Source information: U4atac minor spliceosomal RNA: a 128-nucleotide RNA from Cephus cinctus. On this family, see Marz et al., J Mol Evol 2008: "Evolution of spliceosomal snRNA genes in metazoan animals". About the family: U4atac is an essential component of the minor U12-type spliceosome complex which is required for removal of the rarer class of eukaryotic introns (AT-AC, U12-type). Pairs were carried over by alignment from the consensus structure, which is taken from published work. By type it is a spliceosomal small nuclear RNA. It scores 80 bits against the family's covariance model. Its Rfam clan is "U4 clan".
RNA sequence: AUCGUCCUUGUCUUAGGGGAGCAGAGUAUUCAAUGAUCGUUUCGUGAGGGUACUGUUGCUGAAACCCAUUAUAAAACAAUUUAUCGCAUCCGUACAUUAAUUUGUUACGCGGUGCAAUUUUUGGGAGC
Numbered sequence: 001a002u003c004g005u006c007c008u009u010g011u012c013u014u015a016g017g018g019g020a021g022c023a024g025a026g027u028a029u030u031c032a033a034u035g036a037u038c039g040u041u042u043c044g045u046g047a048g049g050g051u052a053c054u055g056u057u058g059c060u061g062a063a064a065c066c067c068a069u070u071a072u073a074a075a076a077c078a079a080u081u082u083a084u085c086g087c088a089u090c091c092g093u094a095c096a097u098u099a100a101u102u103u104g105u106u107a108c109g110c111g112g113u114g115c116a117a118u119u120u121u122u123g124g125g126a127g128c
Stems, first nucleotide, its partner, number of pairs: 005019005021059004025054007038044001086115005091109001094105003